[Rfam]
Rfam assigns this 130-nucleotide RNA from Chinchilla lanigera to the family "Small nucleolar RNA SNORA20". By type it is an H/ACA-box small nucleolar RNA. A search with the family's covariance model found it, with a score of 106 bits. The source organism's lineage runs through Eukaryota, Metazoa, Deuterostomia, Mammalia and Chinchilla. The family has 17 seed sequences and 437 matches in Rfam 15.1. Rfam's curators write: ACA20 is a member of the H/ACA class of snoRNA that guide the sites of modification of uridines to pseudouridines.
RNA sequence: CUUCCCAUUUAUUUGCUGCUGUCGUCUCCCAGUGACACGAGCAGUUAUACGCAUGGGAUACAAUACUGAUGGGCCAUUGUAAAUUGAGAUGGAGUAACUACGUCAUCUCUUCUGCAUGGUCUGGACACUG
Numbered sequence: 001c002u003u004c005c006c007a008u009u010u011a012u013u014u015g016c017u018g019c020u021g022u023c024g025u026c027u028c029c030c031a032g033u034g035a036c037a038c039g040a041g042c043a044g045u046u047a048u049a050c051g052c053a054u055g056g057g058a059u060a061c062a063a064u065a066c067u068g069a070u071g072g073g074c075c076a077u078u079g080u081a082a083a084u085u086g087a088g089a090u091g092g093a094g095u096a097a098c099u100a101c102g103u104c105a106u107c108u109c110u111u112c113u114g115c116a117u118g119g120u121c122u123g124g125a126c127a128c129u130g
Stems, first nucleotide, its partner, number of pairs: 003058006015045006022037001025035002070123007078116004086109007094101002